Description
The record is a 69-nucleotide RNA from Anolis carolinensis, which matches "mir-1306 microRNA precursor family" in Rfam. For this family Rfam cites "Mammalian microRNAs: experimental evaluation of novel and previously annotated genes" (Chiang et al., Genes Dev, 2010). The family's consensus secondary structure was predicted with RNAalifold.
[Rfam]
RNA sequence: UCCACCACCUCCCCUGCAAACGUCCAGUGACGCAGAGGUAAUGGACGUUGGCUCUGGUGGUGAUGGACA
Numbered sequence: 001u002c003c004a005c006c007a008c009c010u011c012c013c014c015u016g017c018a019a020a021c022g023u024c025c026a027g028u029g030a031c032g033c034a035g036a037g038g039u040a041a042u043g044g045a046c047g048u049u050g051g052c053u054c055u056g057g058u059g060g061u062g063a064u065g066g067a068c069a
Stems, first nucleotide, its partner, number of pairs: 006062004011057002016052002019049008030039002